[Rfam]
Nucleotides: 056
Base pairs, nucleotide, nucleotide: 002012004010005009015050016049017048018047022045024043025042026041027040028039029038
Number, partner (000 for none) and nucleotide at each position: 001000c002012g003000c004010u005009a006000u007000a008000c009005u010004a011000c012002c013000u014000c015050u016049g017048a018047a019000c020000u021000a022045a023000g024043c025042g026041g027040c028039u029038c030000a031000c032000c033000g034000c035000u036000a037000c038029g039028a040027g041026c042025c043024g044000g045022u046000u047018u048017u049016c050015a051000u052000u053000g054000u055000g056000c